[Rfam]
RNA sequence: CUACCAUGAUGCUAUUGAACUCUCUCACUGAAUAUUUUGUGGAAAACGUAAAAUAUUCUGAGUAGC
Numbered sequence: 001c002u003a004c005c006a007u008g009a010u011g012c013u014a015u016u017g018a019a020c021u022c023u024c025u026c027a028c029u030g031a032a033u034a035u036u037u038u039g040u041g042g043a044a045a046a047c048g049u050a051a052a053a054u055a056u057u058c059u060g061a062g063u064a065g066c
Stems, first nucleotide, its partner, number of pairs: 001065004
A member of the RNA family "Small nucleolar RNA SNORD26" from Gadus morhua, 66 nucleotides long. It is annotated as a C/D-box small nucleolar RNA. The base pairs follow the family's consensus structure, which was predicted with PFOLD. A reference for the family is Tycowski et al. (1996), "A mammalian gene with introns instead of exons generating stable RNA products", Nature. Rfam 15.1 lists 451 matches to the family in 401 species. It scores 45 bits against the family's covariance model. Its family is annotated with RNA processing and nucleolus in the Gene Ontology. The source organism's lineage runs through Eukaryota, Bilateria, Teleostomi, Actinopteri and Gadus.